IMES-2 RNA motif: a 138-nucleotide RNA sequence. Rfam classes the family as a non-coding RNA gene.

[Rfam]
RNA sequence: AUAUUAAUUGAGGGGUGACCCUCAACUGACAUACAAGGGGAGGUUUCGGCCAAAUGUUGUAUGCAGAAAGCGUGAGGAAGGUAGCACUUAGACACUCACGAGUAGCGGUUCGGCAGUAGUGCUAAAAUGACGAACCAA
Numbered sequence: 001a002u003a004u005u006a007a008u009u010g011a012g013g014g015g016u017g018a019c020c021c022u023c024a025a026c027u028g029a030c031a032u033a034c035a036a037g038g039g040g041a042g043g044u045u046u047c048g049g050c051c052a053a054a055u056g057u058u059g060u061a062u063g064c065a066g067a068a069a070g071c072g073u074g075a076g077g078a079a080g081g082u083a084g085c086a087c088u089u090a091g092a093c094a095c096u097c098a099c100g101a102g103u104a105g106c107g108g109u110u111c112g113g114c115a116g117u118a119g120u121g122c123u124a125a126a127a128u129g130a131c132g133a134a135c136c137a138a
Stems, first nucleotide, its partner, number of pairs: 008025007026066003030063002033060004038055001042051003071100006084122005107136006114129002